[Rfam]
RNA: Plastid-psbA-4 3UTR RNA
RNA sequence: GAAAAUAAAGGAGCAAUAACCACUUUCUUGUUCUAGCAAGAGUGUUGCUAUUGCUCCUUUAU
Numbered sequence: 001g002a003a004a005a006u007a008a009a010g011g012a013g014c015a016a017u018a019a020c021c022a023c024u025u026u027c028u029u030g031u032u033c034u035a036g037c038a039a040g041a042g043u044g045u046u047g048c049u050a051u052u053g054c055u056c057c058u059u060u061a062u
Stems, first nucleotide, its partner, number of pairs: 007060012022045002025042006